[Rfam]
The family of this 77-nucleotide sequence from Peromyscus maniculatus is "Small nucleolar RNA SNORD66". The base pairs follow the family's consensus structure, which was predicted with RNAalifold. Rfam 15.1 lists 1,346 matches to the family in 614 species. The literature on the family includes a 2001 paper in EMBO J by Huttenhofer et al., "RNomics: an experimental approach that identifies 201 candidates for novel, small, non-messenger RNAs in mouse". snoRNA HBII-142 is part of the C/D family of snoRNAs. It is the human orthologue of the mouse MBII-142 snoRNA and is predicted to guide 2'O-ribose methylation of small 18S rRNA at residue C1272. Rfam classes the family as a C/D-box small nucleolar RNA.

RNA sequence: GUCUGGUGAUCACUGAUGGUCUGUGCUUGUCUGUAGUGGUCACUGAUACAUACUCAUGCAUGUGAAAACCUGAAGAC
Numbered sequence: 001g002u003c004u005g006g007u008g009a010u011c012a013c014u015g016a017u018g019g020u021c022u023g024u025g026c027u028u029g030u031c032u033g034u035a036g037u038g039g040u041c042a043c044u045g046a047u048a049c050a051u052a053c054u055c056a057u058g059c060a061u062g063u064g065a066a067a068a069c070c071u072g073a074a075g076a077c
Stems, first nucleotide, its partner, number of pairs: 001077004